[Rfam]
RNA sequence: AGGAAGUAGCUGUAAAGCUCAGGAGGGAUAGCGCCAUAAUUCACGAGUUUGUGUAUACGUACGUAUCGGCGCUAUCCAUUCUGAGUUCCAUGGCUUCUUCUU
Numbered sequence: 001a002g003g004a005a006g007u008a009g010c011u012g013u014a015a016a017g018c019u020c021a022g023g024a025g026g027g028a029u030a031g032c033g034c035c036a037u038a039a040u041u042c043a044c045g046a047g048u049u050u051g052u053g054u055a056u057a058c059g060u061a062c063g064u065a066u067c068g069g070c071g072c073u074a075u076c077c078a079u080u081c082u083g084a085g086u087u088c089c090a091u092g093g094c095u096u097c098u099u100c101u102u
Stems, first nucleotide, its partner, number of pairs: 010093001016087009026077010
Rfam assigns this 102-nucleotide RNA sequence from Arabis nemorensis to the family "MIR390 microRNA precursor family". Gene Ontology terms of the family: RISC complex and miRNA-mediated post-transcriptional gene silencing.